[Rfam]
Notes:
The family of this 362-nucleotide RNA sequence from Lophium mytilinum is "Group I catalytic intron". The literature on the family includes a 1990 paper in Annu Rev Biochem by Cech, "Self-splicing of group I introns". From the family's description: Group I catalytic introns are large self-splicing ribozymes. They catalyse their own excision from mRNA, tRNA and rRNA precursors in a wide range of organisms. The core secondary structure consists of 9 paired regions (P1-P9). Pairs were carried over by alignment from the consensus structure, which is taken from published work.

RNA sequence: CCUUUGCAGCCACGCAAGUGGUAGAUAUAGCAACGACUAUAAAUAACAGUAAUAUCGCUAUGCAAGUCAGUAGUUAUAUAACUCUGGCGACACUUUCGAAUUGACGGGGACACCCUAAAGCCUAUUGCACAAACUUAGGUAGGAAACUAGCCUAAGGGCCCAUGCUAAUUACAUGGGGUUGUAAAAGACAAUAUGGAUACUUCUUUUACUUUGGUAAAAGUAAAUAUGGGCAAUCCGCAGCGAAGCCUCUAAGUUUUUAAAUUAAAAAUAUGAGGAACGUUCACAGACUAAGUGGAAGUGGGUGAAGUUUUCUACUAGAAACUUUGCUUAAGAUAUAGUCGGGCCCUCUAAGAAAUUAGAGG
Numbered sequence: 001c002c003u004u005u006g007c008a009g010c011c012a013c014g015c016a017a018g019u020g021g022u023a024g025a026u027a028u029a030g031c032a033a034c035g036a037c038u039a040u041a042a043a044u045a046a047c048a049g050u051a052a053u054a055u056c057g058c059u060a061u062g063c064a065a066g067u068c069a070g071u072a073g074u075u076a077u078a079u080a081a082c083u084c085u086g087g088c089g090a091c092a093c094u095u096u097c098g099a100a101u102u103g104a105c106g107g108g109g110a111c112a113c114c115c116u117a118a119a120g121c122c123u124a125u126u127g128c129a130c131a132a133a134c135u136u137a138g139g140u141a142g143g144a145a146a147c148u149a150g151c152c153u154a155a156g157g158g159c160c161c162a163u164g165c166u167a168a169u170u171a172c173a174u175g176g177g178g179u180u181g182u183a184a185a186a187g188a189c190a191a192u193a194u195g196g197a198u199a200c201u202u203c204u205u206u207u208a209c210u211u212u213g214g215u216a217a218a219a220g221u222a223a224a225u226a227u228g229g230g231c232a233a234u235c236c237g238c239a240g241c242g243a244a245g246c247c248u249c250u251a252a253g254u255u256u257u258u259a260a261a262u263u264a265a266a267a268a269u270a271u272g273a274g275g276a277a278c279g280u281u282c283a284c285a286g287a288c289u290a291a292g293u294g295g296a297a298g299u300g301g302g303u304g305a306a307g308u309u310u311u312c313u314a315c316u317a318g319a320a321a322c323u324u325u326g327c328u329u330a331a332g333a334u335a336u337a338g339u340c341g342g343g344c345c346c347u348c349u350a351a352g353a354a355a356u357u358a359g360a361g362g
Stems, first nucleotide, its partner, number of pairs: 001020001003018004091300005097294002102239002105237004113230003240280002246274001248272001254267004284341001286340005302327009347360005